[Rfam]
RNA sequence: AUCCUUAGUUUGCCGAAACUUCCAUCAAUCUCCCAUAGAUUUGCGGAAGUGCGGGGGACAGCUUUUCGAUGCCGCGGUCAGUAAACGGCCGUUGCAACUGGGGUGAAUCGCUUUUGAGCGUAGGGUUGUAUCCUCAAUCCGAAUCCGACAACUAACCUCGUAGGACAAACAAAAGGAGUGAA
Numbered sequence: 001a002u003c004c005u006u007a008g009u010u011u012g013c014c015g016a017a018a019c020u021u022c023c024a025u026c027a028a029u030c031u032c033c034c035a036u037a038g039a040u041u042u043g044c045g046g047a048a049g050u051g052c053g054g055g056g057g058a059c060a061g062c063u064u065u066u067c068g069a070u071g072c073c074g075c076g077g078u079c080a081g082u083a084a085a086c087g088g089c090c091g092u093u094g095c096a097a098c099u100g101g102g103g104u105g106a107a108u109c110g111c112u113u114u115u116g117a118g119c120g121u122a123g124g125g126u127u128g129u130a131u132c133c134u135c136a137a138u139c140c141g142a143a144u145c146c147g148a149c150a151a152c153u154a155a156c157c158u159c160g161u162a163g164g165a166c167a168a169a170c171a172a173a174a175g176g177a178g179u180g181a182a
Stems, first nucleotide, its partner, number of pairs: 011167002013164002018050006051161006059100002101146003109120004123140004
RNA: c-di-AMP riboswitch aptamer (ydaO/yuaA leader)
Organism: Brevibacillus fulvus